[Rfam]
Overview:
A member of the RNA family "mir-252 microRNA precursor family" from Lepeophtheirus salmonis, 153 nucleotides long. Its Rfam clan is "mir-252 microRNA precursor family". It scores 47 bits against the family's covariance model.
RNA sequence: CCUCAUUUCUAAGUACUAGUGCCGCGGGAAGAUCUCAUAGUUCUCCAGAAUUUUUUUAAUAAGAAGAUUAUUUAACAUAUUUUUCUAACGAAUGGGUGUAUUUAAUGAAUUUAAAUAUCAGAACUCCCGUUGUCCAAGUACUUACUAAUGGGA
Numbered sequence: 001c002c003u004c005a006u007u008u009c010u011a012a013g014u015a016c017u018a019g020u021g022c023c024g025c026g027g028g029a030a031g032a033u034c035u036c037a038u039a040g041u042u043c044u045c046c047a048g049a050a051u052u053u054u055u056u057u058a059a060u061a062a063g064a065a066g067a068u069u070a071u072u073u074a075a076c077a078u079a080u081u082u083u084u085c086u087a088a089c090g091a092a093u094g095g096g097u098g099u100a101u102u103u104a105a106u107g108a109a110u111u112u113a114a115a116u117a118u119c120a121g122a123a124c125u126c127c128c129g130u131u132g133u134c135c136a137a138g139u140a141c142u143u144a145c146u147a148a149u150g151g152g153a
Stems, first nucleotide, its partner, number of pairs: 002152006010144008019135001024130006
Gene Ontology terms of the family: RISC complex and miRNA-mediated post-transcriptional gene silencing. On this family, see Li et al., BMC Genomics 2009: "Direct sequencing and expression analysis of a large number of miRNAs in Aedes aegypti and a multi-species survey of novel mosquito miRNAs". The source organism's lineage runs through Eukaryota, Metazoa, Eumetazoa, Altocrustacea and Lepeophtheirus.